[Rfam]
Notes
Shown here is a 112-nucleotide RNA from Eucalyptus grandis, a member of the family "mir-399 microRNA precursor family". Rfam's curators write: mir-399 was identified in both Arabidopsis thaliana and Oryza sativa computationally and was later experimentally verified. mir-399 is thought to target mRNAs coding for a phosphatase transporter. The mature sequence is excised from the 3' arm of the hairpin. Its family is annotated with miRNA-mediated post-transcriptional gene silencing and RISC complex in the Gene Ontology. A reference for the family is Jones-Rhoades and Bartel (2004), "Computational Identification of Plant MicroRNAs and Their Targets, Including a Stress-Induced miRNA", Mol Cell. The source organism's lineage runs through Eukaryota, Streptophyta, Embryophyta, Spermatophyta and Eucalyptus.
RNA sequence: CAGUGAAUAACAGCGUAAUUCUCCUUUGGCAGGAGAGAACUGCAUUGGCAUGCAUGCAAAUGUUAAUGCUGUUCUUGCUCCCGCCAAAGGAGAAUUGCCCCGCCAUUCACUU
Numbered sequence: 001c002a003g004u005g006a007a008u009a010a011c012a013g014c015g016u017a018a019u020u021c022u023c024c025u026u027u028g029g030c031a032g033g034a035g036a037g038a039a040c041u042g043c044a045u046u047g048g049c050a051u052g053c054a055u056g057c058a059a060a061u062g063u064u065a066a067u068g069c070u071g072u073u074c075u076u077g078c079u080c081c082c083g084c085c086a087a088a089g090g091a092g093a094a095u096u097g098c099c100c101c102g103c104c105a106u107u108c109a110c111u112u
Base pairs, nucleotide, nucleotide: 005108006107007106008105011102013100015098016097017096018095019094021092022091023090024089027086028085029084030083032081033080034079035078
Dot-bracket structure: ....((((..(.(.(((((.((((..((((.((((..........................................)))).))))..)))).))))).).)..))))....